T-box leader: a 275-nucleotide sequence from Fusibacter sp. 3D3.
The source organism's lineage runs through Bacteria, Bacillota, Clostridia, Fusibacteraceae and Fusibacter.
Rfam's curators write: Uncharged tRNA acts as the effector for transcription antitermination of genes in the T-box leader family.
It scores 98 bits against the family's covariance model.

RNA sequence: AUAAAAGCGAUGAAGAGGGCAAGUAAGUUAUUGAAUCAAUCCAAGAGAGUCCAUGUAUGCUGAAAGUGGAUAUUGAUGCAAUUAAAGAAACAAGCCUCAGAGCUGCGUACGGAUCUAAACAAUCAUUUCGAGAGCGGAAUGUAUUCUUAGUGAUGCUGCGACAGGCGCUCCUGUUAUAGGGCUAAAGUAUCCCUGAUGGGUGGUACUUGAUAAGGUUGAUUUUGUGAGAAAUCAACAAAAAGAGGUGGCAACGCGAUAUAACAUUCGUCCUCAAG
Numbered sequence: 001a002u003a004a005a006a007g008c009g010a011u012g013a014a015g016a017g018g019g020c021a022a023g024u025a026a027g028u029u030a031u032u033g034a035a036u037c038a039a040u041c042c043a044a045g046a047g048a049g050u051c052c053a054u055g056u057a058u059g060c061u062g063a064a065a066g067u068g069g070a071u072a073u074u075g076a077u078g079c080a081a082u083u084a085a086a087g088a089a090a091c092a093a094g095c096c097u098c099a100g101a102g103c104u105g106c107g108u109a110c111g112g113a114u115c116u117a118a119a120c121a122a123u124c125a126u127u128u129c130g131a132g133a134g135c136g137g138a139a140u141g142u143a144u145u146c147u148u149a150g151u152g153a154u155g156c157u158g159c160g161a162c163a164g165g166c167g168c169u170c171c172u173g174u175u176a177u178a179g180g181g182c183u184a185a186a187g188u189a190u191c192c193c194u195g196a197u198g199g200g201u202g203g204u205a206c207u208u209g210a211u212a213a214g215g216u217u218g219a220u221u222u223u224g225u226g227a228g229a230a231a232u233c234a235a236c237a238a239a240a241a242g243a244g245g246u247g248g249c250a251a252c253g254c255g256a257u258a259u260a261a262c263a264u265u266c267g268u269c270c271u272c273a274a275g
Base pairs, nucleotide, nucleotide: 007103008102015098016097017096018095028084030082031081038074039073040072049071050070051069052068053067054066106160107159108158109157110155111154162173163172164171215236216235217234218233219232220231221230242272243271244270245269253268254267255266256265